Annotation
The record is a 102-nucleotide sequence from Daphnia magna, which matches "mir-276 microRNA precursor family" in Rfam. The organism belongs to Daphnia, within Eukaryota. The base pairs follow the family's consensus structure, which was predicted with RNAalifold.

RNA sequence: GAUGUGACGUGUCGCUAGCGAGGUAUAGAGUUCCUACGUCUUGUCACUGAUUUCAAGUCGAUCGGUAGGAACUUCAUACCGUGCUCUCGACGCCAAUCCAAA
Numbered sequence: 001g002a003u004g005u006g007a008c009g010u011g012u013c014g015c016u017a018g019c020g021a022g023g024u025a026u027a028g029a030g031u032u033c034c035u036a037c038g039u040c041u042u043g044u045c046a047c048u049g050a051u052u053u054c055a056a057g058u059c060g061a062u063c064g065g066u067a068g069g070a071a072c073u074u075c076a077u078a079c080c081g082u083g084c085u086c087u088c089g090a091c092g093c094c095a096a097u098c099c100a101a102a
Stems, first nucleotide, its partner, number of pairs: 012090003017085004022080005028074010